[Rfam]
RNA: c-di-GMP-I riboswitch aptamer
RNA sequence: CCCCGAGAAGGGCAAACCGGUAGUAAUGCCGGGGCGCAAAGCAAAGGGCCGUGGUUGGGUCUCGCUUUUUACGAAGCGAGCGCACGAUUACGGUAGCCUGGCUGCCGAA
Numbered sequence: 001c002c003c004c005g006a007g008a009a010g011g012g013c014a015a016a017c018c019g020g021u022a023g024u025a026a027u028g029c030c031g032g033g034g035c036g037c038a039a040a041g042c043a044a045a046g047g048g049c050c051g052u053g054g055u056u057g058g059g060u061c062u063c064g065c066u067u068u069u070u071a072c073g074a075a076g077c078g079a080g081c082g083c084a085c086g087a088u089u090a091c092g093g094u095a096g097c098c099u100g101g102c103u104g105c106c107g108a109a
Stems, first nucleotide, its partner, number of pairs: 012037002017032006040103003045099003048094003054088004